[Rfam]
RNA: mir-1000 microRNA precursor family
Organism: Drosophila virilis
RNA sequence: GCCAGUGAUAUUGUCCUGUCACAGCAGUAUUGUACGUUAAGCAAUUGGUACUGCUGAGCCGGGGCAUUAACAUUGUU
Numbered sequence: 001g002c003c004a005g006u007g008a009u010a011u012u013g014u015c016c017u018g019u020c021a022c023a024g025c026a027g028u029a030u031u032g033u034a035c036g037u038u039a040a041g042c043a044a045u046u047g048g049u050a051c052u053g054c055u056g057a058g059c060c061g062g063g064g065c066a067u068u069a070a071c072a073u074u075g076u077u
Stems, first nucleotide, its partner, number of pairs: 003075004012066007022056011